[Rfam]
RNA sequence: UACAGUGAGUAGUCGCUGUUUCGUUUUAAACGGAGCAGAGGAAAGUCGAGACACGCACACUUGUUGAGAAGCCAAUAGGCACCGACAAGUGUAAGAUGGUGCCCGGUGCAAGCCGGGGCAGGGCGACCUGACGACGGUGAAAGUAACUCUCGGAGUUAUCAGUAGCCAUAAAGUGCCACAGAAACGAUGUCACCGGGUGACCGGUGAGUGCAAGGGUAAACUCCACCAGCGUGCAACCCAAAUAGGCAGGGACAUUUGUCACCUGCGGGUAGGGGCACCUCGCUUGGCGAGGAAGGGGAAUUCUUCUCCUUAGAUAGAUGACUACUAAAACAGAAUCUCGCUUAUGGCU
Numbered sequence: 001u002a003c004a005g006u007g008a009g010u011a012g013u014c015g016c017u018g019u020u021u022c023g024u025u026u027u028a029a030a031c032g033g034a035g036c037a038g039a040g041g042a043a044a045g046u047c048g049a050g051a052c053a054c055g056c057a058c059a060c061u062u063g064u065u066g067a068g069a070a071g072c073c074a075a076u077a078g079g080c081a082c083c084g085a086c087a088a089g090u091g092u093a094a095g096a097u098g099g100u101g102c103c104c105g106g107u108g109c110a111a112g113c114c115g116g117g118g119c120a121g122g123g124c125g126a127c128c129u130g131a132c133g134a135c136g137g138u139g140a141a142a143g144u145a146a147c148u149c150u151c152g153g154a155g156u157u158a159u160c161a162g163u164a165g166c167c168a169u170a171a172a173g174u175g176c177c178a179c180a181g182a183a184a185c186g187a188u189g190u191c192a193c194c195g196g197g198u199g200a201c202c203g204g205u206g207a208g209u210g211c212a213a214g215g216g217u218a219a220a221c222u223c224c225a226c227c228a229g230c231g232u233g234c235a236a237c238c239c240a241a242a243u244a245g246g247c248a249g250g251g252a253c254a255u256u257u258g259u260c261a262c263c264u265g266c267g268g269g270u271a272g273g274g275g276c277a278c279c280u281c282g283c284u285u286g287g288c289g290a291g292g293a294a295g296g297g298g299a300a301u302u303c304u305u306c307u308c309c310u311u312a313g314a315u316a317g318a319u320g321a322c323u324a325c326u327a328a329a330a331c332a333g334a335a336u337c338u339c340g341c342u343u344a345u346g347g348c349u
Base pairs, nucleotide, nucleotide: 004349005348006347007345008326009325010324011323012322013321014320016038017037018036019035020034021033043343044342045341047340048339049338050337051336052233053232054231055230056229057092058091059090060089061088062087063086064085065084066083097228098227099226100225101224102117103116104115105114106113107112118132119130120129121128122127133223134222136167137166138165144158145157146156147155173221174220175217176216177215190207191206192205193204194203195202196201237274238273239272278292279291280290281289282288283287293311294310295309296308297307298306